[Rfam]
RNA: Guanidine-II riboswitch aptamer (mini-ykkC)
Organism: Pseudomonas sp. ABC1
RNA sequence: AGCCACGGACGACCGUGGCCCAGACCGAAUACCGGCGGGACGGCCCGC
Numbered sequence: 001a002g003c004c005a006c007g008g009a010c011g012a013c014c015g016u017g018g019c020c021c022a023g024a025c026c027g028a029a030u031a032c033c034g035g036c037g038g039g040a041c042g043g044c045c046c047g048c
Base pairs, nucleotide, nucleotide: 002019003018004017005016006015007014008013035048036047037046038045039044